[Rfam]
RNA sequence: AAUGUGGAAGUGGUCUGAGGCAUAUAGAGUAUAUGCCAAGAACACUACCAUAU
Numbered sequence: 001a002a003u004g005u006g007g008a009a010g011u012g013g014u015c016u017g018a019g020g021c022a023u024a025u026a027g028a029g030u031a032u033a034u035g036c037c038a039a040g041a042a043c044a045c046u047a048c049c050a051u052a053u
Stems, first nucleotide, its partner, number of pairs: 002053006009046004014041003019037008
Shown here is a 53-nucleotide RNA sequence from Homo sapiens, a member of the family "mir-4657 microRNA precursor family". Gene Ontology terms of the family: RISC complex and miRNA-mediated post-transcriptional gene silencing. The sequence is in the family's curated seed alignment.